IS605-orfB-I RNA: a 223-nucleotide RNA sequence. The family's consensus secondary structure is taken from published work. It is annotated as a small RNA.
[Rfam]
RNA sequence: ACCUUAUAUAGAUGUAGUAACGCAAGACAGUAACGCAUUUCCCUGUAAGGUAGUGUUAAGUAGAAACUUUAACGAUAAGUACUAUUGUGUAGCUUUUAAAGUUGAAAUAGUAUGAGUCAAAGUGGAAUAGGUUAACCGUAAGACCUUGAAUUGAAAAGUUCUAAAAUUAAUCUAGAGAAACAAAAGUUAUUUUGCUAUUUUCACUAUUUCUAGUUACGGUGAA
Numbered sequence: 001a002c003c004u005u006a007u008a009u010a011g012a013u014g015u016a017g018u019a020a021c022g023c024a025a026g027a028c029a030g031u032a033a034c035g036c037a038u039u040u041c042c043c044u045g046u047a048a049g050g051u052a053g054u055g056u057u058a059a060g061u062a063g064a065a066a067c068u069u070u071a072a073c074g075a076u077a078a079g080u081a082c083u084a085u086u087g088u089g090u091a092g093c094u095u096u097u098a099a100a101g102u103u104g105a106a107a108u109a110g111u112a113u114g115a116g117u118c119a120a121a122g123u124g125g126a127a128u129a130g131g132u133u134a135a136c137c138g139u140a141a142g143a144c145c146u147u148g149a150a151u152u153g154a155a156a157a158g159u160u161c162u163a164a165a166a167u168u169a170a171u172c173u174a175g176a177g178a179a180a181c182a183a184a185a186g187u188u189a190u191u192u193u194g195c196u197a198u199u200u201u202c203a204c205u206a207u208u209u210c211u212a213g214u215u216a217c218g219g220u221g222a223a
Stems, first nucleotide, its partner, number of pairs: 001051008010040006017034002020031002022028001066123005072117002080112007091103002094100001129146005135220006141167001148161005172213007